[Rfam]
The family of this 254-nucleotide part of an RNA from Methanobacterium sp. A39 is "Archaeal large subunit ribosomal RNA". The match comes from Rfam's covariance-model search (2889 bits). Lineage of the source: Archaea > Methanobacteriota > Methanobacteriales > Methanobacteriaceae > Methanobacterium. The family's consensus secondary structure is taken from published work.
RNA sequence: GGUUGCUUGAGGGGAAGGUGGCUCCAGUACGAGAGGAACGAGCCGUCGGUGCCACUGGUCUACCGGUUGUCUGACAAGGCAGUGCCGGGCAGCUACGCACUAGAUUAUAAAGGCUGAAAGCAUCUAAGCCUGAGGUUUCCCCCGAAAAUAAGCAACUUUUGGACAUGGGUAGAAGACCUGAUUGAUGGGGUAGGGGUGUAAGCUUCGAGGCUUCUGGCCGAGUUGUUCAGCCCGCUAUUUCCAACGUCCAAUGG
Numbered sequence: 001g002g003u004u005g006c007u008u009g010a011g012g013g014g015a016a017g018g019u020g021g022c023u024c025c026a027g028u029a030c031g032a033g034a035g036g037a038a039c040g041a042g043c044c045g046u047c048g049g050u051g052c053c054a055c056u057g058g059u060c061u062a063c064c065g066g067u068u069g070u071c072u073g074a075c076a077a078g079g080c081a082g083u084g085c086c087g088g089g090c091a092g093c094u095a096c097g098c099a100c101u102a103g104a105u106u107a108u109a110a111a112g113g114c115u116g117a118a119a120g121c122a123u124c125u126a127a128g129c130c131u132g133a134g135g136u137u138u139c140c141c142c143c144g145a146a147a148a149u150a151a152g153c154a155a156c157u158u159u160u161g162g163a164c165a166u167g168g169g170u171a172g173a174a175g176a177c178c179u180g181a182u183u184g185a186u187g188g189g190g191u192a193g194g195g196g197u198g199u200a201a202g203c204u205u206c207g208a209g210g211c212u213u214c215u216g217g218c219c220g221a222g223u224u225g226u227u228c229a230g231c232c233c234g235c236u237a238u239u240u241c242c243a244a245c246g247u248c249c250a251a252u253g254g
Stems, first nucleotide, its partner, number of pairs: 001157008011143004017047008048101005056095003063088005068081005104138001111131005161249004166180004186243003189239005194233003202226002206222001209219001